mir-8799 microRNA precursor family: a 94-nucleotide sequence from Canis lupus. Gene Ontology terms of the family: RISC complex and miRNA-mediated post-transcriptional gene silencing.
RNA sequence: GAGGGGAGCGCAGGAUCUUGGGCUGAGUCCCCCGGCGCCCUGGCAUCCAGGGUCUGCGCUGCUGGAAUCGUGCUCCCGGGGCGCGCAGCCCCCU
Number, nucleotide and partner (000 for none) at each position: 001g094002a000003g092004g091005g090006g089007a000008g000009c000010g086011c085012a000013g082014g000015a000016u000017c079018u078019u000020g076021g075022g074023c000024u072025g071026a000027g069028u066029c065030c000031c000032c064033c061034g060035g059036c058037g057038c056039c000040c000041u000042g054043g000044c000045a000046u051047c000048c000049a000050g000051g046052g000053u000054c042055u000056g038057c037058g036059c035060u034061g033062c000063u000064g032065g029066a028067a000068u000069c027070g000071u025072g024073c000074u022075c021076c020077c000078g018079g017080g000081g000082c013083g000084c000085g011086c010087a000088g000089c006090c005091c004092c003093c000094u001
Rfam 15.1 lists 20,638 matches to the family in 5 species. The match comes from Rfam's covariance-model search (54 bits). NCBI's taxonomy places the organism under Eukaryota, Craniata, Amniota, Eutheria, Canis lupus.